This 441-nucleotide part of an RNA from Aquirufa nivalisilvae belongs to the Rfam family "Bacterial large subunit ribosomal RNA". NCBI's taxonomy places the organism under Bacteria, Pseudomonadati, Cytophagia, Flectobacillaceae, Aquirufa.
RNA sequence: CUCCCCGAAAUGUUUUUAGGAACAGCCUCGGGGUCAAGUUUUAAGCAGGUAAAGCUACCGAUAGGACUAGGGGGAGUCAAAUCCUACCAAAUCCUGACGAACUCUGAAUGGCUUAAAAUAUACCCGGGAGUGAGGGUUGGGGUGCUAAGGUCCCAAUCCGAGAGGGAAAGAACCCAGACCAACAGCUAAGGUCCCAAAAUCUUUACUAAGUUGAACUAAGGAAGUCUGAUUGCAGUGACAGCCAGGAUGUUAGCUUGGAAGCAGCUAUUCAUUUAAAGAGUGCGUAACAGCUCACUGGUCGAGCGAGGCGGGCAUCGAUAAUAAACGGGCAUCAAGUAAAGUACCGAAGCUUUGGAUUAUAUUUAUAUACUGGUAGGGGAGCAUUCUGAUUGCGGCGAAGGUUGAGCGACAAGCUUGGCUGGAGCGAUCAGAAAAGCAAAU
Numbered sequence: 001c002u003c004c005c006c007g008a009a010a011u012g013u014u015u016u017u018a019g020g021a022a023c024a025g026c027c028u029c030g031g032g033g034u035c036a037a038g039u040u041u042u043a044a045g046c047a048g049g050u051a052a053a054g055c056u057a058c059c060g061a062u063a064g065g066a067c068u069a070g071g072g073g074g075a076g077u078c079a080a081a082u083c084c085u086a087c088c089a090a091a092u093c094c095u096g097a098c099g100a101a102c103u104c105u106g107a108a109u110g111g112c113u114u115a116a117a118a119u120a121u122a123c124c125c126g127g128g129a130g131u132g133a134g135g136g137u138u139g140g141g142g143u144g145c146u147a148a149g150g151u152c153c154c155a156a157u158c159c160g161a162g163a164g165g166g167a168a169a170g171a172a173c174c175c176a177g178a179c180c181a182a183c184a185g186c187u188a189a190g191g192u193c194c195c196a197a198a199a200u201c202u203u204u205a206c207u208a209a210g211u212u213g214a215a216c217u218a219a220g221g222a223a224g225u226c227u228g229a230u231u232g233c234a235g236u237g238a239c240a241g242c243c244a245g246g247a248u249g250u251u252a253g254c255u256u257g258g259a260a261g262c263a264g265c266u267a268u269u270c271a272u273u274u275a276a277a278g279a280g281u282g283c284g285u286a287a288c289a290g291c292u293c294a295c296u297g298g299u300c301g302a303g304c305g306a307g308g309c310g311g312g313c314a315u316c317g318a319u320a321a322u323a324a325a326c327g328g329g330c331a332u333c334a335a336g337u338a339a340a341g342u343a344c345c346g347a348a349g350c351u352u353u354g355g356a357u358u359a360u361a362u363u364u365a366u367a368u369a370c371u372g373g374u375a376g377g378g379g380a381g382c383a384u385u386c387u388g389a390u391u392g393c394g395g396c397g398a399a400g401g402u403u404g405a406g407c408g409a410c411a412a413g414c415u416u417g418g419c420u421g422g423a424g425c426g427a428u429c430a431g432a433a434a435a436g437c438a439a440a441u
Stems, first nucleotide, its partner, number of pairs: 001381006011024005026130001027128006037121001038119009052105001053103002059099002063095004070088002072085004134159010164175003179355004184351003190345003199342001201341006220316002224313005230307002232304002241299005247272003252266003273277001278293001282291002356371001358369004382436001384433010400420008
Dot-bracket structure: ((((((....(((((....))))).(((((((....((((((((((.....(((....((..((((...((((((......)))).))...))))..))..)).).....))))))))).).)))))).)...((((((((((......))))))))))....(((......)))...((((.(((...(((......(.((((((.............((..(((((.((((.......(((((.(((..(((.........)))...)))(...)(...((......)).).)))))...)).)).))))).))...................))))))))))...)))))))(.((((....)))).)....))))))(.((((((((((......((((((((.....))))))))...))))))))))..).....

Pairs were carried over by alignment from the consensus structure, which is taken from published work.